RNA sequence: UCACCCUUUUAAAUACAGUCCCGUGAGGCUGAGAAGGGGGACAUGCAAAAACAAAUUCCUAGAAUGAAUAUAGGAGUUAUGUUUUCGACUGCUUGUACCUCUUUGCGCAGCGCAAAGAGGUAUUUUUUUU
Numbered sequence: 001u002c003a004c005c006c007u008u009u010u011a012a013a014u015a016c017a018g019u020c021c022c023g024u025g026a027g028g029c030u031g032a033g034a035a036g037g038g039g040g041a042c043a044u045g046c047a048a049a050a051a052c053a054a055a056u057u058c059c060u061a062g063a064a065u066g067a068a069u070a071u072a073g074g075a076g077u078u079a080u081g082u083u084u085u086c087g088a089c090u091g092c093u094u095g096u097a098c099c100u101c102u103u104u105g106c107g108c109a110g111c112g113c114a115a116a117g118a119g120g121u122a123u124u125u126u127u128u129u130u
Stems, first nucleotide, its partner, number of pairs: 004038006016031005050082001054078008063069001095123012